Description:
The record is a 52-nucleotide RNA from Bartonella bovis, which matches "ffh sRNA" in Rfam. It scores 59 bits against the family's covariance model. Lineage of the source: Bacteria > Pseudomonadota > Alphaproteobacteria > Bartonella > Bartonella bovis. Rfam classes the family as a small RNA. The family's consensus secondary structure is taken from published work.
RNA sequence: GAUCCCAGAGGUCAACAUCCGAUAACGCGUUGCGUCCUCGGAUGCCAUUUUG
Numbered sequence: 001g002a003u004c005c006c007a008g009a010g011g012u013c014a015a016c017a018u019c020c021g022a023u024a025a026c027g028c029g030u031u032g033c034g035u036c037c038u039c040g041g042a043u044g045c046c047a048u049u050u051u052g
Stems, first nucleotide, its partner, number of pairs: 016044007025035004